[Rfam]
RNA sequence: AAAAGGAGCAAUACCCAAUUUCUUGUUCUAUCAAGAAGCUUGGUAUUGCUCCCC
Number, nucleotide and partner (000 for none) at each position: 001a000002a000003a000004a000005g052006g051007a050008g049009c048010a047011a046012u045013a044014c000015c000016c000017a040018a000019u000020u037021u036022c035023u034024u033025g032026u000027u000028c000029u000030a000031u000032c025033a024034a023035g022036a021037a020038g000039c000040u017041u000042g000043g000044u013045a012046u011047u010048g009049c008050u007051c006052c005053c000054c000

Description
The family of this 54-nucleotide RNA sequence from Kandelia obovata is "Plastid-psbA-4 3UTR RNA". The literature on the family includes a 2023 paper in Plant Commun by Richter et al., "Retrograde signaling in plants: A critical review focusing on the GUN pathway and beyond". The family is grouped with related families in Rfam's "Plastid-psbA 3UTR RNA clan". From the family's description: Plastid psbA-4 is a non-coding RNA (ncRNA) present in plastids. It was identified in inverted repeat sequences in the 3 prime untranslate region (3UTR) of photosystem II quinone-binding protein (psbA). The sequence is in the family's curated seed alignment. The base pairs follow the family's consensus structure, which was predicted with LocARNA.